[Rfam]
RNA sequence: CUCCCAAAUCCCCUGUUGAAAUGUAAUCCUUACCUCCAGCACUGCGGGUUACAUUUCAACAGGAGAUUUGGAUGAGGA
Numbered sequence: 001c002u003c004c005c006a007a008a009u010c011c012c013c014u015g016u017u018g019a020a021a022u023g024u025a026a027u028c029c030u031u032a033c034c035u036c037c038a039g040c041a042c043u044g045c046g047g048g049u050u051a052c053a054u055u056u057c058a059a060c061a062g063g064a065g066a067u068u069u070g071g072a073u074g075a076g077g078a
Base pairs, nucleotide, nucleotide: 001076002075003074004071005070006069007068008067009066010065012063014061015060016059017058018057019056020055021054022053023052024051025050026049027048028047029046031044
Dot-bracket structure: ((((((((((.(.((((((((((((((((.(............).)))))))))))))))).).)))))))..)))..
Record summary: mir-1267 microRNA precursor family: a 78-nucleotide RNA from Cebus imitator. Rfam links the family to the GO terms miRNA-mediated post-transcriptional gene silencing and RISC complex. Pairs were carried over by alignment from the consensus structure, which was predicted with RNAalifold. The organism belongs to Cebus, within Eukaryota.